[Rfam]
Nucleotides: 301
Base pairs, nucleotide, nucleotide: 001301002300003299004298007295008294009293012256013255014254015253016252017251018250020070021069022068023067024066035057036056037055038054039053040052041051042050043049079285080284081283082282083281088228089227090226091225098112099111100110101109102108113128114127115126116125117124118123129224130223131222132221133220134219147208148207149206257273258272259271260270261269262268263267
Number, partner (000 for none) and nucleotide at each position: 001301u002300g003299a004298a005000c006000g007295a008294a009293a010000a011000g012256c013255u014254u015253g016252u017251g018250u019000u020070a021069a022068g023067g024066g025000a026000a027000a028000a029000c030000a031000u032000a033000c034000g035057g036056a037055c038054a039053a040052c041051g042050g043049a044000u045000u046000u047000a048000u049043u050042c051041c052040g053039u054038u055037g056036u057035c058000a059000c060000u061000u062000u063000u064000u065000a066024c067023c068022c069021u070020u071000g072000g073000g074000a075000a076000g077000g078000u079285c080284u081283g082282a083281g084000a085000a086000a087000a088228a089227c090226u091225a092000a093000a094000a095000a096000a097000a098112g099111u100110c101109u102108c103000u104000a105000g106000c107000u108102g109101a110100g111099a112098c113128a114127c115126u116125c117124a118123u119000g120000a121000g122000a123118g124117u125116g126115a127114g128113u129224g130223c131222g132221a133220a134219c135000a136000a137000c138000c139000a140000g141000a142000a143000a144000c145000g146000g147208u148207a149206c150000c151000c152000u153000c154000c155000u156000u157000g158000g159000u160000u161000u162000g163000u164000a165000a166000g167000u168000g169000u170000g171000a172000a173000g174000u175000c176000u177000u178000u179000a180000u181000g182000a183000c184000u185000g186000a187000u188000u189000a190000u191000u192000u193000u194000c195000u196000u197000a198000c199000c200000a201000a202000u203000g204000g205000a206149g207148u208147g209000u210000u211000g212000a213000a214000a215000c216000g217000c218000g219134g220133u221132u222131c223130g224129c225091u226090g227089g228088u229000g230000g231000a232000a233000g234000u235000u236000c237000u238000a239000u240000g241000a242000a243000g244000u245000g246000c247000a248000a249000u250018a251017c252016a253015c254014g255013a256012g257273a258272c259271a260270u261269u262268a263267c264000a265000a266000u267263g268262u269261g270260a271259u272258g273257u274000a275000a276000c277000u278000c279000a280000a281083u282082u283081c284080a285079g286000a287000c288000u289000a290000c291000u292000c293009u294008u295007u296000u297000g298004u299003u300002c301001g
Source information
A member of the RNA family "Nuclear RNase P" from Rhizophagus sp. MUCL 43196, 301 nucleotides long. The match comes from Rfam's covariance-model search (138 bits). A reference for the family is Frank and Pace (1998), "Ribonuclease P: unity and diversity in a tRNA processing ribozyme", Annu Rev Biochem. NCBI's taxonomy places the organism under Eukaryota, Glomeromycotina, Glomeromycetes, Glomerales, Rhizophagus.